[Rfam]
RNA: Plastid-clpP 5UTR RNA
RNA sequence: AUUUCUGGUUGUAAGAAGAAAGAGAAGCAGAUUUAUUAUAUACUCGAUAAGUGCCAAUAUGCAAUGGGU
Number, nucleotide and partner (000 for none) at each position: 001a000002u000003u022004u021005c000006u019007g000008g000009u016010u015011g000012u000013a000014a000015g010016a009017a000018g000019a006020a000021a004022g003023a000024g000025a000026a000027g000028c000029a000030g000031a000032u000033u000034u000035a000036u000037u000038a000039u000040a000041u000042a000043c068044u067045c066046g000047a000048u000049a000050a000051g060052u059053g058054c000055c000056a000057a000058u053059a052060u051061g000062c000063a000064a000065u000066g045067g044068g043069u000